[Rfam]
RNA sequence: GAUCGGGCGUGCGGCUAAUAAAAUACCUCUUUGAGGAAAUAUGCCCGCCGAUCUCAUAACGGUUUUGAGCGCCCGAUCACCACUUU
Numbered sequence: 001g002a003u004c005g006g007g008c009g010u011g012c013g014g015c016u017a018a019u020a021a022a023a024u025a026c027c028u029c030u031u032u033g034a035g036g037a038a039a040u041a042u043g044c045c046c047g048c049c050g051a052u053c054u055c056a057u058a059a060c061g062g063u064u065u066u067g068a069g070c071g072c073c074c075g076a077u078c079a080c081c082a083c084u085u086u
Base pairs, nucleotide, nucleotide: 001078002077003076004075005074006073007072008071009070013045014044015043016041017040026036027035028034047063048062049061050060